This 151-nucleotide RNA from Cricetulus griseus belongs to the Rfam family "U12 minor spliceosomal RNA".
The family's RNA type in Rfam is spliceosomal small nuclear RNA.
The organism belongs to Cricetulus, within Eukaryota.
Rfam links the family to the GO terms U12 snRNP, mRNA branch site recognition and pre-mRNA branch point binding.
On this family, see Tarn and Steitz, Trends Biochem Sci 1997: "Pre-mRNA splicing: the discovery of a new spliceosome doubles the challenge".

Nucleotides: 151
Stems, first nucleotide, its partner, number of pairs: 004023005032053004037048001039046001054070005085151005092146004098140001101136002105133002108130002111127003115123001
Number, partner (000 for none) and nucleotide at each position: 001000a002000u003000g004023c005022u006021u007020u008019a009000c010000a011000c012000u013000u014000a015000u016000g017000a018000u019008u020007a021006a022005g023004g024000a025000a026000a027000a028000c029000a030000a031000c032053g033052a034051c035050u036000c037048g038000a039046g040000g041000u042000g043000a044000u045000g046039c047000c048037c049000a050035a051034g052033u053032c054070c055069u056068u057067a058066c059000u060000g061000c062000u063000a064000a065000u066058g067057u068056g069055a070054g071000a072000u073000g074000g075000a076000a077000u078000u079000u080000u081000u082000g083000a084000g085151u086150g087149g088148g089147u090000a091000a092146a093145g094144g095143u096000u097000g098140c099000c100000c101136c102135c103000u104000a105133a106132g107000a108130c109129a110000a111127c112126c113125c114000a115123u116000c117000u118000a119000c120000u121000u122000u123115g124000a125113g126112g127111g128000a129109u130108g131000c132106c133105u134000g135102g136101g137000a138000g139000c140098g141000g142000u143095g144094u145093c146092u147089g148088c149087c150086u151085g